[Rfam]
RNA sequence: CAAAAGCAUCAAGAGUUUGAGCCGACGCUCAAACGCCAACCUGCUCCCGAGCAAGGUGGCGCUUCCGCAAGGAGGGAUGUGGCCGGUCCGGCAACCAAACGGGACGAA
Numbered sequence: 001c002a003a004a005a006g007c008a009u010c011a012a013g014a015g016u017u018u019g020a021g022c023c024g025a026c027g028c029u030c031a032a033a034c035g036c037c038a039a040c041c042u043g044c045u046c047c048c049g050a051g052c053a054a055g056g057u058g059g060c061g062c063u064u065c066c067g068c069a070a071g072g073a074g075g076g077a078u079g080u081g082g083c084c085g086g087u088c089c090g091g092c093a094a095c096c097a098a099a100c101g102g103g104a105c106g107a108a
Base pairs, nucleotide, nucleotide: 006080007079008078009077010076015034016033017032018031019030020029021028022027035060036059037058040056041055042054043052044051045050048103082092083091084090085089